[Rfam]
RNA sequence: CCUUCCAACAAAGGCAUGUCAUGAGUUCCUUGUCUUUGGACACGUAAGAAUUGGAGGCAAAAAUAUUGUGGAUUUGGUGACAUCUGGGCCAGCUUAUUCCCUGCAGAUUCCAGAUCAACCAUUUCACAUAA
Numbered sequence: 001c002c003u004u005c006c007a008a009c010a011a012a013g014g015c016a017u018g019u020c021a022u023g024a025g026u027u028c029c030u031u032g033u034c035u036u037u038g039g040a041c042a043c044g045u046a047a048g049a050a051u052u053g054g055a056g057g058c059a060a061a062a063a064u065a066u067u068g069u070g071g072a073u074u075u076g077g078u079g080a081c082a083u084c085u086g087g088g089c090c091a092g093c094u095u096a097u098u099c100c101c102u103g104c105a106g107a108u109u110c111c112a113g114a115u116c117a118a119c120c121a122u123u124u125c126a127c128a129u130a131a
Base pairs, nucleotide, nucleotide: 002057003056004055005054006053015044017042018041019040020039024030025029070124071123072122074121091109092108094106095105097103